[Rfam]
Annotation:
Shown here is a 306-nucleotide sequence from Diploscapter pachys, a member of the family "Metazoan signal recognition particle RNA". Its Rfam clan is "SRP clan". The match comes from Rfam's covariance-model search (185 bits). The source organism's lineage runs through Eukaryota, Metazoa, Ecdysozoa, Rhabditida and Diploscapter. It is annotated as a non-coding RNA gene. The signal recognition particle (SRP) is a universally conserved ribonucleoprotein. It is involved in the co-translational targeting of proteins to membranes. The eukaryotic SRP consists of a 300-nucleotide 7S RNA and six proteins: SRPs 72, 68, 54, 19, 14, and 9. Archaeal SRP consists of a 7S RNA and homologues of the eukaryotic SRP19 and SRP54 proteins. Eukaryotic and archaeal 7S RNAs have very similar secondary structures, as represented by this family. Eight helical elements fold into the Alu and S domains, separated by a long linker region. The Alu domain is thought to mediate the peptide chain elongation retardation function of the SRP. The universally conserved helix which interacts with the SRP54 M domain mediates signal sequence recognition. In eukaryotes and archaea, the SRP19-helix 6 complex is thought to be involved in SRP assembly and stabilises helix 8 for SRP54 binding. The Signal Recognition Particle Database (SRPDB) provides compilations of SRP components, with phylogenetic data and structural illustrations. Many sequences below the threshold for this family are clearly closely related, but are most likely to be SRP RNA derived pseudogenes. The human genome in particular is known to contain a large amount of SRP RNA related sequence, including Alu repeats. While the threshold of this family is set high so as to minimise the number of hits to such regions, it is likely that some remain.

RNA sequence: ACUGGGCGUCGUGGCGGGCGUCUGUGAGCCAGCUUCUAGGCAGUAGAGUUGUGGUGGAUGGUCUGAGGUGCGGGUCAAACUGGCGGGUUUAUGCCCGGCUGGCGUAGACCGAGCGUCCUCGCCAAGCGUUGCGUCACUAGGUGUUGUGUUGCGGGAGCGUGAUACGACCCGGGUGGCCAAGGAGAUCCGUACGGCCGAGGCCCCAAAGGGAGCAGGCAAAAGGAUCCGCGCGGUGCGGUGGCAGGACAGCGCUCGUUAGUCGACUAGGCCCCGACAGCCGUACCAUAUGACUAGACCCUAACUCGA
Numbered sequence: 001a002c003u004g005g006g007c008g009u010c011g012u013g014g015c016g017g018g019c020g021u022c023u024g025u026g027a028g029c030c031a032g033c034u035u036c037u038a039g040g041c042a043g044u045a046g047a048g049u050u051g052u053g054g055u056g057g058a059u060g061g062u063c064u065g066a067g068g069u070g071c072g073g074g075u076c077a078a079a080c081u082g083g084c085g086g087g088u089u090u091a092u093g094c095c096c097g098g099c100u101g102g103c104g105u106a107g108a109c110c111g112a113g114c115g116u117c118c119u120c121g122c123c124a125a126g127c128g129u130u131g132c133g134u135c136a137c138u139a140g141g142u143g144u145u146g147u148g149u150u151g152c153g154g155g156a157g158c159g160u161g162a163u164a165c166g167a168c169c170c171g172g173g174u175g176g177c178c179a180a181g182g183a184g185a186u187c188c189g190u191a192c193g194g195c196c197g198a199g200g201c202c203c204c205a206a207a208g209g210g211a212g213c214a215g216g217c218a219a220a221a222g223g224a225u226c227c228g229c230g231c232g233g234u235g236c237g238g239u240g241g242c243a244g245g246a247c248a249g250c251g252c253u254c255g256u257u258a259g260u261c262g263a264c265u266a267g268g269c270c271c272c273g274a275c276a277g278c279c280g281u282a283c284c285a286u287a288u289g290a291c292u293a294g295a296c297c298c299u300a301a302c303u304c305g306a
Base pairs, nucleotide, nucleotide: 001044002043003042004023005022006021007020008019009018010017028041029040030039046304047303048302049301050300051299053298054297059293060292061291062290063289067284068283069282070281071280072279073278080277081276082275084273085272086271087270094268095267097265098264100262101261102260103259110255111254112253113252114251115250116249117245118244121242122241123240124239126236127235128234129233130232131231132230133229134228135175136174137173138172140170141169143168144167145166146165147164148163149162150161151160152159153158177181184226185225186224187223188222194217195216196215201210202209203208